[Rfam]
RNA: mir-310 microRNA precursor family
RNA sequence: GCAUUUUCAGGACGUGAUAUGUGCCUAUAUGUUGGUUAACUAUAUACUCAUAUUGCACAUCUCCCGGCCUAUAAGUGU
Number, nucleotide and partner (000 for none) at each position: 001g078002c077003a076004u075005u074006u073007u000008c000009a000010g069011g068012a000013c066014g065015u000016g063017a062018u000019a000020u059021g058022u000023g056024c000025c055026u000027a053028u052029a051030u050031g049032u000033u000034g000035g000036u000037u000038a000039a000040c000041u000042a000043u000044a000045u000046a000047c000048u000049c031050a030051u029052a028053u027054u000055g025056c023057a000058c021059a020060u000061c000062u017063c016064c000065c014066g013067g000068c011069c010070u000071a000072u000073a006074a005075g004076u003077g002078u001